[Rfam]
RNA sequence: GGUCACAAGUUUGAGGCUAUAGCAGUACCACUUACGGCAUAGCCCUGUUAGAUUCUAGUGAAUCUGCAAGUUCUGCU
Number, nucleotide and partner (000 for none) at each position: 001g000002g000003u000004c000005a000006c000007a000008a000009g000010u000011u000012u000013g045014a000015g044016g043017c042018u041019a000020u000021a077022g076023c075024a074025g073026u000027a071028c000029c000030a000031c000032u000033u000034a000035c000036g000037g000038c000039a000040u000041a018042g017043c016044c015045c013046u000047g000048u000049u066050a065051g064052a063053u062054u061055c060056u000057a000058g000059u000060g055061a054062a053063u052064c051065u050066g049067c000068a000069a000070g000071u027072u000073c025074u024075g023076c022077u021
This 77-nucleotide sequence from Alligator mississippiensis belongs to the Rfam family "Mammalian CPEB3 ribozyme". From the family's description: The mammalian CPEB3 ribozyme is a self cleaving RNA located in the second intron of the CPEB3 gene which belongs to a family of genes regulating messenger RNA polyadenylation. This ribozyme is highly conserved and found only in mammals. Lineage of the source: Eukaryota > Chordata > Gnathostomata > Sarcopterygii > Alligator.